Shown here is a 104-nucleotide RNA from Sphaeramia orbicularis, a member of the family "Vault RNA".
Rfam classes the family as a non-coding RNA gene.
About the family: This family of RNAs are found as part of the enigmatic vault ribonucleoprotein complex. The complex consists of a major vault protein (MVP), two minor vault proteins (VPARP and TEP1), and several small untranslated RNA molecules. It has been suggested that the vault complex is involved in drug resistance.
Lineage of the source: Eukaryota > Osteoglossocephalai > Gobiaria > Apogonidae > Sphaeramia.
It scores 54 bits against the family's covariance model.
RNA sequence: GUGGAGGUUUGGCUCAGUGGCUACUUCCUCAUAUUGUCCAAUGAUCUCACCCUGUCGGUCCGCGGGCCUUGGGUACGAUACCACGGGCGCUGCCCUCCACCUUU
Numbered sequence: 001g002u003g004g005a006g007g008u009u010u011g012g013c014u015c016a017g018u019g020g021c022u023a024c025u026u027c028c029u030c031a032u033a034u035u036g037u038c039c040a041a042u043g044a045u046c047u048c049a050c051c052c053u054g055u056c057g058g059u060c061c062g063c064g065g066g067c068c069u070u071g072g073g074u075a076c077g078a079u080a081c082c083a084c085g086g087g088c089g090c091u092g093c094c095c096u097c098c099a100c101c102u103u104u
Base pairs, nucleotide, nucleotide: 002099003098004097005096006095007094012088013087014086015085017084018083019082020081026078027077029075